[Rfam]
RNA sequence: GGAUGACCGGUCUCUCUUGGUGUUCAGAGUCAGAUUUUUGUCUAGCACCAUUUGAAAUCGGUUAUGA
Numbered sequence: 001g002g003a004u005g006a007c008c009g010g011u012c013u014c015u016c017u018u019g020g021u022g023u024u025c026a027g028a029g030u031c032a033g034a035u036u037u038u039u040g041u042c043u044a045g046c047a048c049c050a051u052u053u054g055a056a057a058u059c060g061g062u063u064a065u066g067a
Base pairs, nucleotide, nucleotide: 003065004064005062007061008060009059010058011057013055014054018050019049020048021047022046026043027042028041